RNA sequence: AUGGCUGACGCUAAAAUGCCUGAUGCACAAUCAGGCUAUGAAAAAGGCAGCACAUUGGUCAUGGCAGGCCUAUCAGGGCUGAAUAUGGUUUAUGAAGCGG
Numbered sequence: 001a002u003g004g005c006u007g008a009c010g011c012u013a014a015a016a017u018g019c020c021u022g023a024u025g026c027a028c029a030a031u032c033a034g035g036c037u038a039u040g041a042a043a044a045a046g047g048c049a050g051c052a053c054a055u056u057g058g059u060c061a062u063g064g065c066a067g068g069c070c071u072a073u074c075a076g077g078g079c080u081g082a083a084u085a086u087g088g089u090u091u092a093u094g095a096a097g098c099g100g
Base pairs, nucleotide, nucleotide: 003012025032033062035060077098080095
RNA: Pyrrolysine insertion sequence mttB
Organism: Puniceispirillum marinum